[Rfam]
RNA: Purine riboswitch aptamer
Organism: Metabacillus arenae
Nucleotides: 101
Stems, first nucleotide, its partner, number of pairs: 019086002022083003029049001031047005058077007
Number, partner (000 for none) and nucleotide at each position: 001000u002000c003000c004000a005000a006000a007000u008000a009000u010000a011000a012000a013000u014000c015000a016000u017000g018000a019086c020085g021000u022083u023082g024081u025000u026000c027000a028000a029049u030000a031047u032046c033045g034044g035043g036000a037000a038000u039000a040000u041000g042000a043035c044034c045033c046032g047031a048000g049029a050000g051000u052000u053000u054000c055000u056000a057000c058077c059076a060075a061074g062073c063072u064071g065000c066000c067000g068000c069000a070000a071064u072063g073062g074061c075060u076059u077058g078000a079000c080000u081024a082023c083022a084000c085020c086019g087000g088000u089000a090000u091000u092000u093000a094000a095000c096000g097000g098000u099000u100000a101000u